[Rfam]
RNA sequence: AGACCCUGCCUUUCAGGCAUCCUCUCCUAAAACUUUUCAGGCCGGUCCCGCUGGGGCUGGCCUUUCUUUUUGCCGGU
Numbered sequence: 001a002g003a004c005c006c007u008g009c010c011u012u013u014c015a016g017g018c019a020u021c022c023u024c025u026c027c028u029a030a031a032a033c034u035u036u037u038c039a040g041g042c043c044g045g046u047c048c049c050g051c052u053g054g055g056g057c058u059g060g061c062c063u064u065u066c067u068u069u070u071u072g073c074c075g076g077u
Base pairs, nucleotide, nucleotide: 008018009017010016011015040062041061042060043059044058045057046056047055048054